[Rfam]
This 93-nucleotide RNA sequence belongs to the Rfam family "PGK RNA". The sequence is in the family's curated seed alignment. The family's RNA type in Rfam is cis-regulatory element.
RNA sequence: UAGAAUGCUAAUCUACUAAGGACAAAUGAUAUAUCGUUGAGAAAGUAAAACUCAAAAAGAUUAGAAAUUAAGCUAAAUACUGAUAAUAUUUAG
Numbered sequence: 001u002a003g004a005a006u007g008c009u010a011a012u013c014u015a016c017u018a019a020g021g022a023c024a025a026a027u028g029a030u031a032u033a034u035c036g037u038u039g040a041g042a043a044a045g046u047a048a049a050a051c052u053c054a055a056a057a058a059g060a061u062u063a064g065a066a067a068u069u070a071a072g073c074u075a076a077a078u079a080c081u082g083a084u085a086a087u088a089u090u091u092a093g
Stems, first nucleotide, its partner, number of pairs: 008064006037055005073093007